[Rfam]
RNA sequence: CAGGUGACGCACGGGAGCCCGGUCGUAGCGGGCUGAGAGGGGACGGAACAGGUCCCGACCGUCGAACCUGAUCCGGGUCAUGCCGGCGCAGGGAGCGGAUGGUGAUGAGGA
Numbered sequence: 001c002a003g004g005u006g007a008c009g010c011a012c013g014g015g016a017g018c019c020c021g022g023u024c025g026u027a028g029c030g031g032g033c034u035g036a037g038a039g040g041g042g043a044c045g046g047a048a049c050a051g052g053u054c055c056c057g058a059c060c061g062u063c064g065a066a067c068c069u070g071a072u073c074c075g076g077g078u079c080a081u082g083c084c085g086g087c088g089c090a091g092g093g094a095g096c097g098g099a100u101g102g103u104g105a106u107g108a109g110g111a
Base pairs, nucleotide, nucleotide: 008097009096010095011062012061013060014059017033018032019031020030021029040056041055042054043053044052067092068091069090070089073086074085075084076083